RNA sequence: UCUGUUGUCAAAGCGCCAGAACUGCAGGGUGAUGCAGUUGACGAGGUGGAGGAUGAUCGAGUGUUCGGCGGAUGCCUCCCGGUAUUGCGUCAGUGCCGUGGAAUCGUAAUACAAACCGAUUGGGUGACUAAUCGAGCAAAGAUUACGAUAUGAUGCAAA
Numbered sequence: 001u002c003u004g005u006u007g008u009c010a011a012a013g014c015g016c017c018a019g020a021a022c023u024g025c026a027g028g029g030u031g032a033u034g035c036a037g038u039u040g041a042c043g044a045g046g047u048g049g050a051g052g053a054u055g056a057u058c059g060a061g062u063g064u065u066c067g068g069c070g071g072a073u074g075c076c077u078c079c080c081g082g083u084a085u086u087g088c089g090u091c092a093g094u095g096c097c098g099u100g101g102a103a104u105c106g107u108a109a110u111a112c113a114a115a116c117c118g119a120u121u122g123g124g125u126g127a128c129u130a131a132u133c134g135a136g137c138a139a140a141g142a143u144u145a146c147g148a149u150a151u152g153a154u155g156c157a158a159a
Base pairs, nucleotide, nucleotide: 020039021038022037023036024035025034026033048079049078050077051076052075057068058067059066060065080098081097082096083095084094085093103149104148105147106146107145108144109143117134118133119132120131121130122129123128
A member of the RNA family "glmS glucosamine-6-phosphate activated ribozyme aptamer" from Baia soyae, 159 nucleotides long. Its family is annotated with regulation of gene expression and catalytic activity in the Gene Ontology. A search with the family's covariance model found it, with a score of 108 bits. Pairs were carried over by alignment from the consensus structure, which is taken from published work. It is annotated as a riboswitch. From the family's description: This entry contains a glucosamine-6-phosphate activated ribozyme that is found in the mRNA for GlmS. GlmS is an enzyme that uses fructose-6-phosphate and glutamine to generate glucosamine-6-phosphate.